Source information: Rfam assigns this 82-nucleotide RNA sequence from Acrocarpospora pleiomorpha to the family "Actinobacteria sRNA Ms_AS-4".

[Rfam]
Nucleotides: 082
Base pairs, nucleotide, nucleotide: 009043010042012040013039018038019037022036023035025033026032027031055079056078057077060075061074063072
Number, partner (000 for none) and nucleotide at each position: 001000u002000u003000u004000g005000g006000c007000c008000g009043u010042g011000g012040c013039g014000u015000a016000g017000c018038g019037g020000c021000c022036u023035u024000g025033g026032g027031c028000g029000u030000c031027g032026c033025c034000g035023a036022a037019c038018u039013c040012g041000g042010c043009g044000a045000g046000c047000a048000c049000c050000c051000g052000g053000g054000c055079g056078c057077c058000c059000a060075g061074g062000a063072u064000c065000a066000u067000u068000c069000c070000c071000a072063g073000a074061c075060c076000g077057g078056g079055c080000u081000g082000g
The pairing is the family consensus, mapped onto this sequence.
The family's RNA type in Rfam is small RNA.